RNA sequence: CCAUAACCCAUGCCGAGUUCCUGCCACGCGUUGGCAGGGAGCGGGGGACCCAGUGAUCGCCGAGUGGCGAUCGGGGGCGAAUCGCCGGACGAGUCCGGCGUAGCGCACGUCUUACGCGCGAGCCCGACAGCUAACCCCGUAGGCGAUGAGACGAAGGGAC
Numbered sequence: 001c002c003a004u005a006a007c008c009c010a011u012g013c014c015g016a017g018u019u020c021c022u023g024c025c026a027c028g029c030g031u032u033g034g035c036a037g038g039g040a041g042c043g044g045g046g047g048a049c050c051c052a053g054u055g056a057u058c059g060c061c062g063a064g065u066g067g068c069g070a071u072c073g074g075g076g077g078c079g080a081a082u083c084g085c086c087g088g089a090c091g092a093g094u095c096c097g098g099c100g101u102a103g104c105g106c107a108c109g110u111c112u113u114a115c116g117c118g119c120g121a122g123c124c125c126g127a128c129a130g131c132u133a134a135c136c137c138c139g140u141a142g143g144c145g146a147u148g149a150g151a152c153g154a155a156g157g158g159a160c
Stems, first nucleotide, its partner, number of pairs: 011145004018040009041140006051074001075125003083100004103119004
Description:
c-di-AMP riboswitch aptamer (ydaO/yuaA leader): a 160-nucleotide sequence from Patulibacter medicamentivorans. The organism belongs to Patulibacter, within Bacteria. Its family is annotated with cyclic-di-AMP binding and regulation of gene expression in the Gene Ontology. This family represents a conserved RNA structure found upstream of the ydaO and yuaA genes in Bacillus subtilis and related genes in other bacteria. The ydaO/yuaA element is thought to act as a genetic 'off' switch for the ydaO and yuaA genes in its native state. It is believed that the element may be triggered during osmotic shock leading to activation of ydaO, a predicted amino acid transporter gene, and members of the yuaA-yubG operon which code for KtrA and KtrB K+ transporters.